[Rfam]
RNA: tRNA
RNA sequence: GCCCGGGUAGCUCAAUGGUCAGAGCGUGUGGCUUUUAUGUUGAAGUCUACCUCAAGGUUGGGGGUUCGAGUCCCCCCUCGGGCG
Numbered sequence: 001g002c003c004c005g006g007g008u009a010g011c012u013c014a015a016u017g018g019u020c021a022g023a024g025c026g027u028g029u030g031g032c033u034u035u036u037a038u039g040u041u042g043a044a045g046u047c048u049a050c051c052u053c054a055a056g057g058u059u060g061g062g063g064g065u066u067c068g069a070g071u072c073c074c075c076c077c078u079c080g081g082g083c084g
Stems, first nucleotide, its partner, number of pairs: 001083007010025004027054002030051002060076005